Rfam assigns this 395-nucleotide part of an RNA from Fusarium heterosporum to the family "Ascomycota telomerase RNA".
RNA sequence: AAUCAUACAGAAGGAGCGUUCUUGUCAGUAUCGGUGGGUUUCCAAACUGCGUUCUAUCAUGACAGCUCCUAGUGGUAUUGUGUUUACGAAGGUAUUGAAUCAUUGCAGAACUGUCAGCCAUGGAACAGUUGUCACCUCUGUAAUGGCCAGUGUUGCAUGGUGAUACUUGCGGUUGACGUUGGAAGCAUCGCCGGGACCCAUCUCGAGUUGGAGUCAAAGUUUCGUGCUUGUCUGGUGAUGUGGAAGGCUCUUCCAUUGAGUUGAACUCCACGGAGUUGUGUCGCAUUGGUGAGAUUGGGUUGUAUUGUUGGAUCUAGGGCAGGCCUUGUUGGUGUGGCAGUCCUGGCUGUCCUCUCGCCUGAGAAUGGUGUGGAGGACAGCCCCCCGUAUUGAGG
Numbered sequence: 001a002a003u004c005a006u007a008c009a010g011a012a013g014g015a016g017c018g019u020u021c022u023u024g025u026c027a028g029u030a031u032c033g034g035u036g037g038g039u040u041u042c043c044a045a046a047c048u049g050c051g052u053u054c055u056a057u058c059a060u061g062a063c064a065g066c067u068c069c070u071a072g073u074g075g076u077a078u079u080g081u082g083u084u085u086a087c088g089a090a091g092g093u094a095u096u097g098a099a100u101c102a103u104u105g106c107a108g109a110a111c112u113g114u115c116a117g118c119c120a121u122g123g124a125a126c127a128g129u130u131g132u133c134a135c136c137u138c139u140g141u142a143a144u145g146g147c148c149a150g151u152g153u154u155g156c157a158u159g160g161u162g163a164u165a166c167u168u169g170c171g172g173u174u175g176a177c178g179u180u181g182g183a184a185g186c187a188u189c190g191c192c193g194g195g196a197c198c199c200a201u202c203u204c205g206a207g208u209u210g211g212a213g214u215c216a217a218a219g220u221u222u223c224g225u226g227c228u229u230g231u232c233u234g235g236u237g238a239u240g241u242g243g244a245a246g247g248c249u250c251u252u253c254c255a256u257u258g259a260g261u262u263g264a265a266c267u268c269c270a271c272g273g274a275g276u277u278g279u280g281u282c283g284c285a286u287u288g289g290u291g292a293g294a295u296u297g298g299g300u301u302g303u304a305u306u307g308u309u310g311g312a313u314c315u316a317g318g319g320c321a322g323g324c325c326u327u328g329u330u331g332g333u334g335u336g337g338c339a340g341u342c343c344u345g346g347c348u349g350u351c352c353u354c355u356c357g358c359c360u361g362a363g364a365a366u367g368g369u370g371u372g373g374a375g376g377a378c379a380g381c382c383c384c385c386c387g388u389a390u391u392g393a394g395g
Stems, first nucleotide, its partner, number of pairs: 195215003198211003217229004
The family is grouped with related families in Rfam's "Telomerase clan".